RNA sequence: UAGUGCUACUAGGGGUGCCAACCACAUUAGGCUGAGAAAUACCCUUAGAACCUGAUCUAGGUAAUGCUAGCGAAGGGAAGUGGCUUCAUACUUUU
Numbered sequence: 001u002a003g004u005g006c007u008a009c010u011a012g013g014g015g016u017g018c019c020a021a022c023c024a025c026a027u028u029a030g031g032c033u034g035a036g037a038a039a040u041a042c043c044c045u046u047a048g049a050a051c052c053u054g055a056u057c058u059a060g061g062u063a064a065u066g067c068u069a070g071c072g073a074a075g076g077g078a079a080g081u082g083g084c085u086u087c088a089u090a091c092u093u094u095u
Base pairs, nucleotide, nucleotide: 006083007082008081009080010079011045012044013043014042016039017032018031019030021028051076052075053074057070058069059068060067
RNA: TPP riboswitch aptamer (THI element)